[Rfam]
RNA sequence: CUGUGCUAGACGGGGAGGUAGCGGUGCCCUGUAGCCUGCAACCCGCUGUAGCAGGGUCGAAUCCCUCACCGAGGCAUGCUGUAUGUAGGGCAGCCUUAAGUAAGUGGUAAUGAAGAUCGGGUCCUACGCAAUGGAAGCUUGCGAACCCCGCCAGGUCUGGAAGGAAGCAACGGUAAGUAAUCCCUUUCGUGUGCCGUAGGGCAGCCUGAUUCGAGCUAACUGCUUAAGUAACGCCUAUGGCAGUCUGUCAAAGUGAGGUGCACAG
Number, nucleotide and partner (000 for none) at each position: 001c265002u264003g263004u262005g261006c260007u000008a000009g058010a057011c056012g030013g029014g028015g027016a000017g025018g000019u023020a000021g000022c000023g019024g000025u017026g000027c015028c014029c013030u012031g000032u000033a000034g000035c055036c054037u053038g052039c051040a000041a000042c000043c000044c000045g000046c000047u000048g000049u000050a000051g039052c038053a037054g036055g035056g011057u010058c009059g000060a000061a000062u000063c000064c258065c257066u256067c255068a254069c253070c000071g000072a000073g249074g248075c247076a246077u000078g000079c243080u242081g241082u240083a000084u239085g238086u237087a236088g235089g234090g000091c000092a000093g000094c000095c000096u227097u226098a225099a224100g223101u222102a000103a000104g220105u219106g217107g216108u215109a000110a000111u000112g000113a000114a000115g211116a210117u209118c208119g207120g206121g205122u204123c200124c199125u198126a197127c196128g195129c191130a190131a000132u189133g188134g187135a186136a185137g182138c000139u180140u179141g178142c177143g000144a000145a000146c000147c000148c173149c172150g171151c000152c000153a000154g000155g000156u165157c164158u163159g000160g000161a000162a000163g158164g157165a156166a000167g000168c000169a000170a000171c150172g149173g148174u000175a000176a000177g142178u141179a140180a139181u000182c137183c000184c000185u136186u135187u134188c133189g132190u130191g129192u000193g000194c000195c128196g127197u126198a125199g124200g123201g000202c000203a000204g122205c121206c120207u119208g118209a117210u116211u115212c000213g000214a000215g108216c107217u106218a000219a105220c104221u000222g101223c100224u099225u098226a097227a096228g000229u000230a000231a000232c000233g000234c089235c088236u087237a086238u085239g084240g082241c081242a080243g079244u000245c000246u076247g075248u074249c073250a000251a000252a000253g069254u068255g067256a066257g065258g064259u000260g006261c005262a004263c003264a002265g001
Bacterial large signal recognition particle RNA: a 265-nucleotide sequence from Alkaliphilus pronyensis.
A search with the family's covariance model found it, with a score of 199 bits.
By type it is a non-coding RNA gene.
Lineage of the source: Bacteria > Bacillati > Bacillota > Natronincolaceae > Alkaliphilus.
A reference for the family is Rosenblad et al. (2003), "SRPDB: Signal Recognition Particle Database", Nucleic Acids Res.
The base pairs follow the family's consensus structure, which is taken from published work.